Notes: The family of this 260-nucleotide RNA is "HIF-1 alpha IRES". It is one of the family's seed sequences. This family represents the hypoxia-inducible factor 1-alpha internal ribosome entry site. HIF-1a is a subunit of the HIF-1 transcription factor, which induces transcription of several genes involved in the cellular response to hypoxia. The HIF-1a IRES allows translation to be maintained under hypoxic cell conditions that inhibit cap-dependent translation.

RNA sequence: CGCGAGGACUGUCCUCGCCGCCGUCGCGGGCAGUGUCUAGCCAGGCCUUGACAAGCUAGCCGGAGGAGCGCCUAGGAACCCGAGCCGGAGCUCAGCGAGCGCAGCCUGCACGCCCGCCUCGCGUCCCGGGGGGGUCCCGCCUCCCACCCCGCCUCUGGACUUGUCUCUUUCCCCGCGCGCGCGGACAGAGCCGGCGUUUAGGCCCGAGCGAGCCCGGGGGCCGCCGGCCGGGAAGACAACGCGGGCACCGAUUCGCCAUG
Numbered sequence: 001c002g003c004g005a006g007g008a009c010u011g012u013c014c015u016c017g018c019c020g021c022c023g024u025c026g027c028g029g030g031c032a033g034u035g036u037c038u039a040g041c042c043a044g045g046c047c048u049u050g051a052c053a054a055g056c057u058a059g060c061c062g063g064a065g066g067a068g069c070g071c072c073u074a075g076g077a078a079c080c081c082g083a084g085c086c087g088g089a090g091c092u093c094a095g096c097g098a099g100c101g102c103a104g105c106c107u108g109c110a111c112g113c114c115c116g117c118c119u120c121g122c123g124u125c126c127c128g129g130g131g132g133g134g135u136c137c138c139g140c141c142u143c144c145c146a147c148c149c150c151g152c153c154u155c156u157g158g159a160c161u162u163g164u165c166u167c168u169u170u171c172c173c174c175g176c177g178c179g180c181g182c183g184g185a186c187a188g189a190g191c192c193g194g195c196g197u198u199u200a201g202g203c204c205c206g207a208g209c210g211a212g213c214c215c216g217g218g219g220g221c222c223g224c225c226g227g228c229c230g231g232g233a234a235g236a237c238a239a240c241g242c243g244g245g246c247a248c249c250g251a252u253u254c255g256c257c258a259u260g
Stems, first nucleotide, its partner, number of pairs: 002018006020046003068135002072133001111132001113130003161194003165190004173184002204227003208224003